[Rfam]
RNA sequence: CUCCUCGAAAGCUAUUUAGGUAGCGCCUCGGACUUAUACCACAGGGGGUAGAGCACUGUUUGGGCUAGGGGGUCAUCCCGACUUACCAACCCCAUGCAAACUCCGAAUACCUGUGAGUACUAUCCGGGAGACACACGGCGGGUGCUAACGUUCGUCGUGAAAAGGGAAACAACCCAGACCGCCAGCUAAGGUCCCCAAGUACUAGUUAAGUGGGAAACGAUGUGGGAAGGCAUAGACAGCUAGGAGGUUGGCUUAGAAGCAGCCAUCCUUUAAAGAAAGCGUAAUAGCUCACUAGUCGAGUCGGCCUGCGCGGAAGAUGUAACGGGGCUAAACUAGUCACCGAAGCUGCGGGUGUGCACUUGUGCACGCGGUAGAGGAGCGUUCUGUAAGCCGUUGAAGGUGAAUCGAGAGGUUUGCUGGAGGUAUCAGAAGUGCGAAU
Dot-bracket structure: ((((((....(((((....))))).(((((((...(...((((((.....(((...(((.((((...(((((((.....))))).))...)))).)))..)).).....)))))).....).)))))).)...((((((((((......))))))))))....(((......)))...((((.(((...(((......(.((((((...........((..(((((..(((.......(((((.(((..(((.........)))..)))(...)(...((......)).).)))))...)))..))))).))...................))))))))))...)))))))(((((((....)))))))....))))))(.(((((...(((......((((((((....))))))))...)))..)))))..).....
RNA: Bacterial large subunit ribosomal RNA, nucleotides 797 to 1235
Organism: Ketobacter alkanivorans